The record is an 84-nucleotide sequence from Brassica carinata, which matches "Small nucleolar RNA Z122" in Rfam. NCBI's taxonomy places the organism under Eukaryota, Viridiplantae, Pentapetalae, Brassiceae, Brassica. Rfam links the family to the GO terms nucleolus and RNA processing. The match comes from Rfam's covariance-model search (65 bits).
Nucleotides: 084
Stems, first nucleotide, its partner, number of pairs: 002083005
Number, partner (000 for none) and nucleotide at each position: 001000a002083c003082u004081g005080g006079g007000a008000u009000a010000u011000g012000a013000u014000g015000a016000u017000a018000a019000g020000a021000u022000a023000u024000c025000g026000a027000u028000a029000u030000u031000a032000c033000a034000u035000a036000g037000g038000c039000a040000u041000a042000u043000g044000c045000a046000u047000u048000g049000c050000u051000g052000a053000a054000c055000c056000a057000a058000a059000u060000a061000u062000u063000u064000g065000c066000a067000c068000g069000u070000c071000a072000g073000u074000c075000u076000g077000a078000c079006c080005c081004c082003a083002g084000c